[Rfam]
RNA sequence: UGAUGUCCCUCAACCAUCUCUAAAGAUCCCAGGUAGCUGAGGGAAUAGUCAACAGGGUC
Numbered sequence: 001u002g003a004u005g006u007c008c009c010u011c012a013a014c015c016a017u018c019u020c021u022a023a024a025g026a027u028c029c030c031a032g033g034u035a036g037c038u039g040a041g042g043g044a045a046u047a048g049u050c051a052a053c054a055g056g057g058u059c
Base pairs, nucleotide, nucleotide: 006044007043008042009041010040011039014036016034017033018032025059026058027057028056029055

The family of this 59-nucleotide RNA from Polypterus senegalus is "Antizyme RNA frameshifting stimulation element". From the family's description: This family represents a structural element which is found in antizyme mRNA and is known to promote frameshifting. Antizyme genes have have two partially overlapping open reading frames, the second, which encodes the functional protein requires +1 translational frameshifting. This frameshift is stimulated by a pseudoknot present 3' of the frameshift site in the antizyme mRNA. The frameshifting efficiency is dependent on the level of polyamines in the cell, when the polyamine concentration is high frameshifting is more likely to occur which leads to an increase in the quantity of functional antizyme produced. The functional antizyme acts to reduce ornithine decarboxylase (ODC) activity which leads to a drop in polyamines present in the cell.